RNA: Bacterial RNase P class A
RNA sequence: CAGGGUGCCUGGGCAAUCGCGAGAUACCUCUUCUGAGGGGUAUAUCGAGGAAAGUCCGGGCUCCACAGCACAGCAUGGUGGAUAACAUCCACUCGGGGUAACCCGCAGGCUAGUGCCACAGAAAGUAAACCGCCUCAUCGAGGUAAGGGUGAAAGGGUGGUGUAAGGGACCACCAGUGGGCGCGGUGACGUGCUCAGCUCGGUAAACCCCAUGCGGAGCAAGGCCAAACAGAACACGCCAUGACAGGGUAGUGCGCCCGAGCCAGCGGCGCGUGUUCGGGUAGGCUGCUUGAUGCUUAUGGCAACAUAAGCCCUAGAUAGAUGAUUGCCUUAGGUACGUAGCUUUUAGAAGCGGUACUGAUGACAGAACCCGGCUUAUAGGGCACCCUGCUUC
Numbered sequence: 001c002a003g004g005g006u007g008c009c010u011g012g013g014c015a016a017u018c019g020c021g022a023g024a025u026a027c028c029u030c031u032u033c034u035g036a037g038g039g040g041u042a043u044a045u046c047g048a049g050g051a052a053a054g055u056c057c058g059g060g061c062u063c064c065a066c067a068g069c070a071c072a073g074c075a076u077g078g079u080g081g082a083u084a085a086c087a088u089c090c091a092c093u094c095g096g097g098g099u100a101a102c103c104c105g106c107a108g109g110c111u112a113g114u115g116c117c118a119c120a121g122a123a124a125g126u127a128a129a130c131c132g133c134c135u136c137a138u139c140g141a142g143g144u145a146a147g148g149g150u151g152a153a154a155g156g157g158u159g160g161u162g163u164a165a166g167g168g169a170c171c172a173c174c175a176g177u178g179g180g181c182g183c184g185g186u187g188a189c190g191u192g193c194u195c196a197g198c199u200c201g202g203u204a205a206a207c208c209c210c211a212u213g214c215g216g217a218g219c220a221a222g223g224c225c226a227a228a229c230a231g232a233a234c235a236c237g238c239c240a241u242g243a244c245a246g247g248g249u250a251g252u253g254c255g256c257c258c259g260a261g262c263c264a265g266c267g268g269c270g271c272g273u274g275u276u277c278g279g280g281u282a283g284g285c286u287g288c289u290u291g292a293u294g295c296u297u298a299u300g301g302c303a304a305c306a307u308a309a310g311c312c313c314u315a316g317a318u319a320g321a322u323g324a325u326u327g328c329c330u331u332a333g334g335u336a337c338g339u340a341g342c343u344u345u346u347a348g349a350a351g352c353g354g355u356a357c358u359g360a361u362g363a364c365a366g367a368a369c370c371c372g373g374c375u376u377a378u379a380g381g382g383c384a385c386c387c388u389g390c391u392u393c
Stems, first nucleotide, its partner, number of pairs: 001389010011378001012329007020047003024043007052376003056373005061218004068263001073214005078092005093107001094105004108209002113207002115203003130148002132144005156174006176198001177196008222286004231277006254270004294311007